[Rfam]
RNA sequence: CCCAGCUCUCAGUCAGCUGACCAGGCGAUGUGUGUCUGGCCCAGUGUUACAGGGCUGGUAGAGGAAGUCUCUGUGCUUAGUCUCAGCUGUGCAGGUUCUGUUUUAGAAUCUGUUCCGGCUGAGCUGCUGCAGAGCGUGGCCCUUCUAGAGAGUGGCCUGUCCUGAUCCAACAGCAGGGUGGGCCUAGUGCAGGGCUGCACACU
Numbered sequence: 001c002c003c004a005g006c007u008c009u010c011a012g013u014c015a016g017c018u019g020a021c022c023a024g025g026c027g028a029u030g031u032g033u034g035u036c037u038g039g040c041c042c043a044g045u046g047u048u049a050c051a052g053g054g055c056u057g058g059u060a061g062a063g064g065a066a067g068u069c070u071c072u073g074u075g076c077u078u079a080g081u082c083u084c085a086g087c088u089g090u091g092c093a094g095g096u097u098c099u100g101u102u103u104u105a106g107a108a109u110c111u112g113u114u115c116c117g118g119c120u121g122a123g124c125u126g127c128u129g130c131a132g133a134g135c136g137u138g139g140c141c142c143u144u145c146u147a148g149a150g151a152g153u154g155g156c157c158u159g160u161c162c163u164g165a166u167c168c169a170a171c172a173g174c175a176g177g178g179u180g181g182g183c184c185u186a187g188u189g190c191a192g193g194g195c196u197g198c199a200c201a202c203u
Stems, first nucleotide, its partner, number of pairs: 002058008012050002016045004022038005069134006075127002082123008091114001092112002094109001096108004136198008154184003158180007
RNA: Small nucleolar RNA SNORA74